[Rfam]
RNA sequence: GCACUGCAACGGUUUGUCGCUGGCGCUUCUGAAAGGUCGCGCGAGAGGAAAGUCCGGGCAGCAUAAGGCGCUCCACUUCUGAAAGUAGAAGCUAUUGGUGACAGUAGGUGCCGGCAGAAGAGAACGACCGCCUCAGUUUUUUGAGGUAAGGGUGAGAAGGUGGUGUAAGAGACCACCAGCCAGCGGGUGAUCGUUGGGCUGUGUCGACUGGAGGCUGCAAGUUCAUGUAUACCAUCGUCUGAGGGUUGCCUGCCCAACGACGCAAGUCACGAUGGAGGGUAGAACGCUUGAGCCAUGGGGUGACUCAUGGACUAGAUAAAUGACAAACGCCAUGCCUGCAUGGUACAGAACCCGGCUUAUAGGGGCAGUGCUUUU
Number, nucleotide and partner (000 for none) at each position: 001g371002c370003a369004c368005u367006g366007c365008a000009a000010c362011g360012g328013u327014u326015u325016g324017u323018c322019g000020c045021u044022g000023g042024c041025g040026c039027u000028u000029c000030u000031g000032a000033a000034a000035g000036g000037u000038c000039g026040c025041g024042c023043g000044a021045g020046a000047g000048g000049a000050a358051a357052g356053u000054c355055c354056g353057g352058g351059c217060a216061g215062c214063a000064u000065a000066a000067g255068g000069c000070g000071c213072u212073c211074c210075a209076c091077u090078u089079c088080u087081g000082a000083a000084a000085g000086u000087a080088g079089a078090a077091g076092c107093u000094a105095u104096u103097g102098g000099u000100g000101a000102c097103a096104g095105u094106a000107g092108g208109u207110g000111c000112c206113g205114g204115c203116a202117g000118a000119a000120g000121a000122g000123a000124a000125c000126g000127a000128c151129c150130g147131c146132c145133u144134c143135a142136g141137u000138u000139u000140u000141u136142u135143g134144a133145g132146g131147u130148a000149a000150g129151g128152g000153u000154g000155a000156g000157a000158a000159g177160g176161u175162g174163g173164u172165g000166u000167a000168a000169g000170a000171g000172a164173c163174c162175a161176c160177c159178a000179g199180c197181c196182a195183g194184c193185g192186g191187g000188u000189g000190a000191u186192c185193g184194u183195u182196g181197g180198g000199c179200u000201g000202u116203g115204u114205c113206g112207a109208c108209u075210g074211g073212a072213g071214g062215c061216u060217g059218c000219a000220a000221g285222u284223u283224c282225a000226u000227g000228u000229a000230u000231a000232c275233c274234a273235u272236c271237g000238u000239c000240u000241g000242a000243g000244g000245g000246u000247u000248g000249c000250c000251u000252g000253c000254c000255c067256a000257a000258c000259g000260a000261c000262g000263c000264a000265a000266g000267u000268c000269a000270c000271g236272a235273u234274g233275g232276a000277g000278g000279g000280u000281a000282g224283a223284a222285c221286g000287c000288u000289u000290g000291a000292g000293c310294c309295a308296u307297g306298g305299g304300g000301u000302g000303a000304c299305u298306c297307a296308u295309g294310g293311a000312c000313u000314a000315g000316a000317u000318a000319a000320a000321u000322g018323a017324c016325a015326a014327a013328c012329g000330c000331c000332a000333u000334g000335c000336c000337u000338g000339c000340a000341u000342g000343g000344u000345a000346c000347a000348g000349a000350a000351c058352c057353c056354g055355g054356c052357u051358u050359a000360u011361a000362g010363g000364g000365g007366c006367a005368g004369u003370g002371c001372u000373u000374u000375u000

A member of the RNA family "Bacterial RNase P class A" from Xylanibacter ruminicola, 375 nucleotides long. The base pairs follow the family's consensus structure, which is taken from published work.